[Rfam]
RNA sequence: UGGUCAUUACCAAGGCUUUUAGAAUGGAGUUUCUGAUUUGUGGAUGUGACCACAAAACAUUUUGCCCACUAGCUUUUUUUCUGCUAUGUUACUAGCAUUCAGCCUAUUGGGAACAUUU
Dot-bracket structure: ..(((((..(((................(........)..)))..)))))..............((((...(((.......(((..........)))...)))....)))).......
Numbered sequence: 001u002g003g004u005c006a007u008u009a010c011c012a013a014g015g016c017u018u019u020u021a022g023a024a025u026g027g028a029g030u031u032u033c034u035g036a037u038u039u040g041u042g043g044a045u046g047u048g049a050c051c052a053c054a055a056a057a058c059a060u061u062u063u064g065c066c067c068a069c070u071a072g073c074u075u076u077u078u079u080u081c082u083g084c085u086a087u088g089u090u091a092c093u094a095g096c097a098u099u100c101a102g103c104c105u106a107u108u109g110g111g112a113a114c115a116u117u118u
Stems, first nucleotide, its partner, number of pairs: 003050005010043003029038001065111004072103003082097003
This 118-nucleotide RNA sequence from Hipposideros armiger belongs to the Rfam family "Small nucleolar RNA SNORA32".
ACA32 is a member of the H/ACA class of snoRNA that guide the sites of modification of uridines to pseudouridines.
The family's RNA type in Rfam is H/ACA-box small nucleolar RNA.
A search with the family's covariance model found it, with a score of 101 bits.